[Rfam]
RNA sequence: CCCUGCGCGAAUGAGCAGGGCCGUUUUUUUUGACGGUAACAAGGGGUCUGCCCGUG
Numbered sequence: 001c002c003c004u005g006c007g008c009g010a011a012u013g014a015g016c017a018g019g020g021c022c023g024u025u026u027u028u029u030u031u032g033a034c035g036g037u038a039a040c041a042a043g044g045g046g047u048c049u050g051c052c053c054g055u056g
Base pairs, nucleotide, nucleotide: 001020002019003018004017005016006015008013
Dot-bracket structure: ((((((.(....).))))))....................................
The record is a 56-nucleotide RNA from Erwinia pyrifoliae, which matches "ClpQY promoter" in Rfam. Taxonomically the source falls in Erwinia (Bacteria, Pseudomonadati, Pseudomonadota, Enterobacterales). The literature on the family includes a 2009 paper in Open Microbiol J by Lien et al., "Regulation of clpQ(+)Y(+) (hslV(+)U(+)) gene expression in Escherichia coli".